[Rfam]
RNA sequence: GCCAAAUGAUGUGAAGUGUGUGACAUUAGCACUUUGUGCAAAGAUGACCUUCAUCUAUCACCCCAUACUGAUGGCU
Numbered sequence: 001g002c003c004a005a006a007u008g009a010u011g012u013g014a015a016g017u018g019u020g021u022g023a024c025a026u027u028a029g030c031a032c033u034u035u036g037u038g039c040a041a042a043g044a045u046g047a048c049c050u051u052c053a054u055c056u057a058u059c060a061c062c063c064c065a066u067a068c069u070g071a072u073g074g075c076u
Base pairs, nucleotide, nucleotide: 001075002074003073004072029039030038031037032036
RNA: Small nucleolar RNA SNORD83